Rfam assigns this 105-nucleotide sequence from Didymosphaeria variabile to the family "Small nucleolar RNA SNORD14".
[Rfam]
RNA sequence: GCCCUGUGAUGAAAAAUGUUCCACAUUCGCAGUUUCCACGCUAGCUUCACUUGAACCCAUCUUGGAAGUCGAUGAGCGCAUAACCUUCCUUGGAUGUCUGAGGGC
Number, nucleotide and partner (000 for none) at each position: 001g105002c104003c103004c102005u000006g000007u000008g000009a000010u000011g000012a000013a000014a000015a000016a000017u000018g000019u000020u000021c000022c000023a000024c000025a000026u000027u000028c000029g000030c000031a000032g000033u000034u000035u000036c000037c000038a000039c000040g000041c000042u000043a000044g000045c068046u067047u066048c065049a000050c000051u000052u000053g000054a000055a000056c000057c000058c000059a000060u000061c000062u000063u000064g000065g048066a047067a046068g045069u000070c000071g000072a000073u000074g000075a000076g000077c000078g000079c000080a000081u000082a000083a000084c000085c000086u000087u000088c000089c000090u000091u000092g000093g000094a000095u000096g000097u000098c000099u000100g000101a000102g004103g003104g002105c001
The source organism's lineage runs through Eukaryota, Dikarya, saccharomyceta, Pleosporales and Didymosphaeria. A search with the family's covariance model found it, with a score of 66 bits. Rfam describes the family as follows. U14 small nucleolar RNA (U14 snoRNA) is required for early cleavages of eukaryotic precursor rRNAs. In yeasts, this molecule possess a stem-loop region (known as the Y-domain) which is essential for function. A similar structure, but with a different consensus sequence, is found in plants, but is absent in vertebrates. A reference for the family is Samarsky et al. (1996), "An essential domain in Saccharomyces cerevisiae U14 snoRNA is absent in vertebrates, but conserved in other yeasts", Nucleic Acids Res. Gene Ontology terms of the family: RNA processing and nucleolus. The family's RNA type in Rfam is C/D-box small nucleolar RNA.